[Rfam]
RNA sequence: UGAGCCGACUGGGCGAUCGCGACUCCAGGUACCGCCGCAUUCCUAGCGUGUUGGCCUGAGGUCGAGGAAAGUCCGGACUCCACAGAGCACGGUGAUUGUUAACAACAACCCAGGGUGACCUGCGGGCAAGUGCAACAGAAAGUAGACCGCCUAGAUUUUUCUGGGUAAGGGUGAAACGGUGCGGUAAGAGCGCACCAGCAGACUAGGUGACUAGCCUGGCUGGGUAAACCCCACUGGGAGCAAGGCAUUAGGGCGUAUUCUUUGAGUAUGCCUGCACGGAUGUUUGAGAGCUGCUCGCUUGAGUCCGUGGGUAGCUGCUUGAGGCGGCCAGCGAUGGUACGUCCAGAUGGAUGAUCGCCAUCCUUUUUUUUAAAAAGGGGAUACAGAAUCCGGCUUAUAGGUUGGCUCAUUCG
Numbered sequence: 001u002g003a004g005c006c007g008a009c010u011g012g013g014c015g016a017u018c019g020c021g022a023c024u025c026c027a028g029g030u031a032c033c034g035c036c037g038c039a040u041u042c043c044u045a046g047c048g049u050g051u052u053g054g055c056c057u058g059a060g061g062u063c064g065a066g067g068a069a070a071g072u073c074c075g076g077a078c079u080c081c082a083c084a085g086a087g088c089a090c091g092g093u094g095a096u097u098g099u100u101a102a103c104a105a106c107a108a109c110c111c112a113g114g115g116u117g118a119c120c121u122g123c124g125g126g127c128a129a130g131u132g133c134a135a136c137a138g139a140a141a142g143u144a145g146a147c148c149g150c151c152u153a154g155a156u157u158u159u160u161c162u163g164g165g166u167a168a169g170g171g172u173g174a175a176a177c178g179g180u181g182c183g184g185u186a187a188g189a190g191c192g193c194a195c196c197a198g199c200a201g202a203c204u205a206g207g208u209g210a211c212u213a214g215c216c217u218g219g220c221u222g223g224g225u226a227a228a229c230c231c232c233a234c235u236g237g238g239a240g241c242a243a244g245g246c247a248u249u250a251g252g253g254c255g256u257a258u259u260c261u262u263u264g265a266g267u268a269u270g271c272c273u274g275c276a277c278g279g280a281u282g283u284u285u286g287a288g289a290g291c292u293g294c295u296c297g298c299u300u301g302a303g304u305c306c307g308u309g310g311g312u313a314g315c316u317g318c319u320u321g322a323g324g325c326g327g328c329c330a331g332c333g334a335u336g337g338u339a340c341g342u343c344c345a346g347a348u349g350g351a352u353g354a355u356c357g358c359c360a361u362c363c364u365u366u367u368u369u370u371u372a373a374a375a376a377g378g379g380g381a382u383a384c385a386g387a388a389u390c391c392g393g394c395u396u397a398u399a400g401g402u403u404g405g406c407u408c409a410u411u412c413g
Stems, first nucleotide, its partner, number of pairs: 001409010011398001012359007020064005026058005069396003073393005078240004085296004090236005096108004110124001111122004125231002130229002132225002147170002149166007178196006198220001199218003203214004244316003253308003257304002288300004323343004327338004
Shown here is a 413-nucleotide RNA from Corynebacterium pseudotuberculosis, a member of the family "Bacterial RNase P class A". It scores 281 bits against the family's covariance model. NCBI's taxonomy places the organism under Bacteria, Bacillati, Actinomycetes, Corynebacterium, Corynebacterium pseudotuberculosis.